[Rfam]
RNA sequence: ACUGGGAAGAGCCUCUGGUGAGGAUUCUCCUCUCUCUGAUGGCUGUGGUGGUGAUGAGCAUCAAACCAAAGCCUCUAAGAAGUUGACUGAAGAGGCUGUUCCUCU
Dot-bracket structure: ......((.((((((............................................................................)))))).)).....
Numbered sequence: 001a002c003u004g005g006g007a008a009g010a011g012c013c014u015c016u017g018g019u020g021a022g023g024a025u026u027c028u029c030c031u032c033u034c035u036c037u038g039a040u041g042g043c044u045g046u047g048g049u050g051g052u053g054a055u056g057a058g059c060a061u062c063a064a065a066c067c068a069a070a071g072c073c074u075c076u077a078a079g080a081a082g083u084u085g086a087c088u089g090a091a092g093a094g095g096c097u098g099u100u101c102c103u104c105u
Stems, first nucleotide, its partner, number of pairs: 007100002010097006